[Rfam]
RNA: Bacterial large signal recognition particle RNA
RNA sequence: CUGUGCUAGACGGGGAGGUAGCGGUGCCCUGUAACCCGCAAUCCGCUAUAGCGGGGUCGAUGCCUAUCUGAGGUUUGCACUAUGUGAGGUCUGGCUCAUGUGCGCGGCGUUGACGAAAGGGUCCUAUGCAACGGAAGCCCAUGAACCCCGUCAGGUCCGGAAGGAAGCAGCGGUAAGUGGGUCUCUCCGUGUGUUGUAGGGUAGCCUUUUCCGAGCUGGCGGCAUGAGUACGCUCAGGUAGUGCUUAUCGAGGAUAGGUGCACAG
Numbered sequence: 001c002u003g004u005g006c007u008a009g010a011c012g013g014g015g016a017g018g019u020a021g022c023g024g025u026g027c028c029c030u031g032u033a034a035c036c037c038g039c040a041a042u043c044c045g046c047u048a049u050a051g052c053g054g055g056g057u058c059g060a061u062g063c064c065u066a067u068c069u070g071a072g073g074u075u076u077g078c079a080c081u082a083u084g085u086g087a088g089g090u091c092u093g094g095c096u097c098a099u100g101u102g103c104g105c106g107g108c109g110u111u112g113a114c115g116a117a118a119g120g121g122u123c124c125u126a127u128g129c130a131a132c133g134g135a136a137g138c139c140c141a142u143g144a145a146c147c148c149c150g151u152c153a154g155g156u157c158c159g160g161a162a163g164g165a166a167g168c169a170g171c172g173g174u175a176a177g178u179g180g181g182u183c184u185c186u187c188c189g190u191g192u193g194u195u196g197u198a199g200g201g202u203a204g205c206c207u208u209u210u211c212c213g214a215g216c217u218g219g220c221g222g223c224a225u226g227a228g229u230a231c232g233c234u235c236a237g238g239u240a241g242u243g244c245u246u247a248u249c250g251a252g253g254a255u256a257g258g259u260g261c262a263c264a265g
Stems, first nucleotide, its partner, number of pairs: 001265006009058003012030004017025001019023001035055005063258007072249003079242005085236004092230002096227006104220002106217003115211008123200006129191002132189004137182006148173004156165003